[Rfam]
RNA sequence: GGCACUGCAGCGGGAGAGCUUGGUACGUUGAUAAAAAAACGUGCCAACGCCGAAGGAGCAACCACCCCGGAAACUCUCAGGCAAAAGGACCGCUGCAGUCAU
Number, nucleotide and partner (000 for none) at each position: 001g000002g000003c000004a000005c000006u097007g096008c095009a094010g093011c092012g091013g090014g000015a000016g000017a000018g000019c000020u047021u046022g045023g044024u043025a042026c041027g040028u039029u038030g000031a000032u000033a000034a000035a000036a000037a000038a029039a028040c027041g026042u025043g024044c023045c022046a021047a020048c000049g082050c081051c080052g078053a077054a000055g000056g076057a075058g074059c000060a000061a000062c070063c069064a000065c000066c000067c000068c000069g063070g062071a000072a000073a000074c058075u057076c056077u053078c052079a000080g051081g050082c049083a000084a000085a000086a000087g000088g000089a000090c013091c012092g011093c010094u009095g008096c007097a006098g000099u000100c000101a000102u000
The family of this 102-nucleotide RNA from Rhodoferax sp. AJA081-3 is "Glycine riboswitch aptamer". This family represents the bacterial glycine riboswitch. Glycine riboswitches usually consist of two metabolite-binding aptamers domains with similar structures in tandem. The aptamers cooperatively bind glycine to regulate the expression of downstream genes. In Bacillus subtilis, this riboswitch is found upstream of the gcvT operon which controls glycine degradation. For this family Rfam cites "A glycine-dependent riboswitch that uses cooperative binding to control gene expression" (Mandal et al., Science, 2004). Its family is annotated with glycine biosynthetic process in the Gene Ontology. It scores 70 bits against the family's covariance model. Lineage of the source: Bacteria > Pseudomonadati > Pseudomonadota > Comamonadaceae > Rhodoferax.